[Rfam]
This 207-nucleotide RNA sequence from Anaeromicrobium sediminis belongs to the Rfam family "raiA RNA". The source organism's lineage runs through Bacteria, Bacillota, Clostridia, Peptostreptococcales and Anaeromicrobium. A search with the family's covariance model found it, with a score of 176 bits.

RNA sequence: AUGAUGUAGGUCUGUGGUUGAAAGUCCAAGCCAGUCGCAGGCAAAAGGACCCACGUAAGGUAAUUUUAAAAAGUAAAUUAUUGAUCAUGGUGCGGCUUAGAAGUAAGACCUGCCAGUUAAAUCUGAGAGAAGUAAUAGUGAGGCAAACCCGGAGCAAACCUUCCAGCAGGCGAGUGUGGGGGCAAAGACCAGGUCAGCUAUGAUUAU
Numbered sequence: 001a002u003g004a005u006g007u008a009g010g011u012c013u014g015u016g017g018u019u020g021a022a023a024g025u026c027c028a029a030g031c032c033a034g035u036c037g038c039a040g041g042c043a044a045a046a047g048g049a050c051c052c053a054c055g056u057a058a059g060g061u062a063a064u065u066u067u068a069a070a071a072a073g074u075a076a077a078u079u080a081u082u083g084a085u086c087a088u089g090g091u092g093c094g095g096c097u098u099a100g101a102a103g104u105a106a107g108a109c110c111u112g113c114c115a116g117u118u119a120a121a122u123c124u125g126a127g128a129g130a131a132g133u134a135a136u137a138g139u140g141a142g143g144c145a146a147a148c149c150c151g152g153a154g155c156a157a158a159c160c161u162u163c164c165a166g167c168a169g170g171c172g173a174g175u176g177u178g179g180g181g182g183c184a185a186a187g188a189c190c191a192g193g194u195c196a197g198c199u200a201u202g203a204u205u206a207u
Base pairs, nucleotide, nucleotide: 001207002206003205004204005203006201007200008199009198012197013196014195015191016190017189018188019187028177030175031041033097034096035095036094037093038092039091050090051089055085058082059081062078064076088184109170110169111168112167113166114125115124116123129163130162131161132160138155139154